[Rfam]
RNA sequence: AUUCCUACGGAGUGUCUCUUCUAACCCUAAAUUAUCUCGGCUCCCUGUACUCGGCGUUUGCUGUUUUUGUCUGGCUUUCAGGAAACUACAGGGAGUCUUGGACGUCUCGGUUCACGGAUCAAAAAAGCCAAGAAAAUCACUCCGUCGCGUUCAGGUCCCCCCCCAGGAACACCGAGAGCCCUGUUGUGGUCAGUCCGGCUGCCGCAAAGAGUUGGUCUCUGCUGCUCCGGUGUCUUGGCGGGAUCACCAAGGACUGAACAGAGAAACAGUGAGCGUGGUGACUCUACCGGUUCUUCCAAUGUCCCGGUUAGGAUACCCAAGCUCAAACACUC
Numbered sequence: 001a002u003u004c005c006u007a008c009g010g011a012g013u014g015u016c017u018c019u020u021c022u023a024a025c026c027c028u029a030a031a032u033u034a035u036c037u038c039g040g041c042u043c044c045c046u047g048u049a050c051u052c053g054g055c056g057u058u059u060g061c062u063g064u065u066u067u068u069g070u071c072u073g074g075c076u077u078u079c080a081g082g083a084a085a086c087u088a089c090a091g092g093g094a095g096u097c098u099u100g101g102a103c104g105u106c107u108c109g110g111u112u113c114a115c116g117g118a119u120c121a122a123a124a125a126a127g128c129c130a131a132g133a134a135a136a137u138c139a140c141u142c143c144g145u146c147g148c149g150u151u152c153a154g155g156u157c158c159c160c161c162c163c164c165a166g167g168a169a170c171a172c173c174g175a176g177a178g179c180c181c182u183g184u185u186g187u188g189g190u191c192a193g194u195c196c197g198g199c200u201g202c203c204g205c206a207a208a209g210a211g212u213u214g215g216u217c218u219c220u221g222c223u224g225c226u227c228c229g230g231u232g233u234c235u236u237g238g239c240g241g242g243a244u245c246a247c248c249a250a251g252g253a254c255u256g257a258a259c260a261g262a263g264a265a266a267c268a269g270u271g272a273g274c275g276u277g278g279u280g281a282c283u284c285u286a287c288c289g290g291u292u293c294u295u296c297c298a299a300u301g302u303c304c305c306g307g308u309u310a311g312g313a314u315a316c317c318c319a320a321g322c323u324c325a326a327a328c329a330c331u332c
Base pairs, nucleotide, nucleotide: 005147007145008144009143010142011141012140013139014138040096041095042094043093044092056086057085058084059083061081062080063079071132072131073129074128075127076125077124078123150258151257152256153255154254156252160241161240163238164237165236166235167234169233170232171231172230173229174228176227177226178225179224185206186205187204188203189202191201192200193199194198208220209219210218211217271324272323273322274321276319277317278316279315280314282312
This 332-nucleotide RNA from Takifugu bimaculatus belongs to the Rfam family "Vertebrate telomerase RNA". For this family Rfam cites "Comparative functional study of the viral telomerase RNA based on natural mutations" (Fragnet et al., J Biol Chem, 2005). Rfam describes the family as follows. Telomerase is a ribonucleoprotein reverse transcriptase that synthesises telomeric DNA. Telomerase RNAs differ greatly in sequence and structure between vertebrates, ciliates and yeasts, but they share a 5' pseudoknot structure close to the template sequence. Vertebrate telomerase RNAs have a 3' H/ACA snoRNA-like domain. Its Rfam clan is "Telomerase clan".